[Rfam]
RNA sequence: GGUGUGCGAUAGACUCACCUCUACGAGGUGCACCCCAGGUAACGUAUUCUAAUACGGCAAAAUGUCUAU
Numbered sequence: 001g002g003u004g005u006g007c008g009a010u011a012g013a014c015u016c017a018c019c020u021c022u023a024c025g026a027g028g029u030g031c032a033c034c035c036c037a038g039g040u041a042a043c044g045u046a047u048u049c050u051a052a053u054a055c056g057g058c059a060a061a062a063u064g065u066c067u068a069u
Stems, first nucleotide, its partner, number of pairs: 001036002004033004017029003043056005
The record is a 69-nucleotide RNA from Rodentolepis nana, which matches "HDV ribozyme from F. prausnitzii" in Rfam.
A reference for the family is Webb et al. (2009), "Widespread occurrence of self-cleaving ribozymes", Science.
The match comes from Rfam's covariance-model search (47 bits).
Pairs were carried over by alignment from the consensus structure, which is taken from published work.